[Rfam]
RNA sequence: AUAGUUCUUCAGGACAAGGUGAAAUUCCUGACCGGCAGUAUAGUCUGCGCGCCAUAUGGCUGAUACGGCGAAAUCCCGUAACCGACGGUAAAGUCCGGAUGAAAGGAGAUAACA
Numbered sequence: 001a002u003a004g005u006u007c008u009u010c011a012g013g014a015c016a017a018g019g020u021g022a023a024a025u026u027c028c029u030g031a032c033c034g035g036c037a038g039u040a041u042a043g044u045c046u047g048c049g050c051g052c053c054a055u056a057u058g059g060c061u062g063a064u065a066c067g068g069c070g071a072a073a074u075c076c077c078g079u080a081a082c083c084g085a086c087g088g089u090a091a092a093g094u095c096c097g098g099a100u101g102a103a104a105g106g107a108g109a110u111a112a113c114a
Stems, first nucleotide, its partner, number of pairs: 006109005017029003031094002033084002035048004043082002051060003064080005086097003
Shown here is a 114-nucleotide RNA sequence from Ruminococcus sp. AF31-8BH, a member of the family "FMN riboswitch aptamer (RFN element)". Pairs were carried over by alignment from the consensus structure, which is taken from published work.